RNA sequence: CAACCCUGUCCCUUGGCACUGGGAGAAUUCACAGGAGUUAUAUGAAAUACCCGUGAAUUUCCUGAUGCCUUAGCUCAGGGUUG
Numbered sequence: 001c002a003a004c005c006c007u008g009u010c011c012c013u014u015g016g017c018a019c020u021g022g023g024a025g026a027a028u029u030c031a032c033a034g035g036a037g038u039u040a041u042a043u044g045a046a047a048u049a050c051c052c053g054u055g056a057a058u059u060u061c062c063u064g065a066u067g068c069c070u071u072a073g074c075u076c077a078g079g080g081u082u083g
Base pairs, nucleotide, nucleotide: 003081004080005079006078007077008076015069016068017067018066020064021063022062023060025059026058029056030055031054032053034051
Overview:
The family of this 83-nucleotide RNA sequence from Plutella xylostella is "mir-263 microRNA precursor family". Clan: mir-182 clan.